[Rfam]
RNA sequence: GAAGCGCGAACCAAGCAGUCACCCACUGGUGGCGUGAGGCUUGGAGCUGGCCUUGGUAACGAGGUCAUGCG
Numbered sequence: 001g002a003a004g005c006g007c008g009a010a011c012c013a014a015g016c017a018g019u020c021a022c023c024c025a026c027u028g029g030u031g032g033c034g035u036g037a038g039g040c041u042u043g044g045a046g047c048u049g050g051c052c053u054u055g056g057u058a059a060c061g062a063g064g065u066c067a068u069g070c071g
Base pairs, nucleotide, nucleotide: 011044012043013042014041015040018033019032020031021030022029048067049066050065051064052063053062054061055060